[Rfam]
RNA sequence: UUUCUCCCAGACCCUUGUCAUUCUCACGCCCCGUGUAUUUCUGCUACUGGACGGAGAACUGAUAAGGGCUUGUGGGAAA
Numbered sequence: 001u002u003u004c005u006c007c008c009a010g011a012c013c014c015u016u017g018u019c020a021u022u023c024u025c026a027c028g029c030c031c032c033g034u035g036u037a038u039u040u041c042u043g044c045u046a047c048u049g050g051a052c053g054g055a056g057a058a059c060u061g062a063u064a065a066g067g068g069c070u071u072g073u074g075g076g077a078a079a
Base pairs, nucleotide, nucleotide: 012068013067014066015065016064017063018062019061020060021058022057023056024055025054029050030049
Rfam assigns this 79-nucleotide RNA sequence from Callosobruchus maculatus to the family "mir-184 microRNA precursor family".
A search with the family's covariance model found it, with a score of 63 bits.
For this family Rfam cites "The developmental miRNA profiles of zebrafish as determined by small RNA cloning" (Chen et al., Genes Dev, 2005).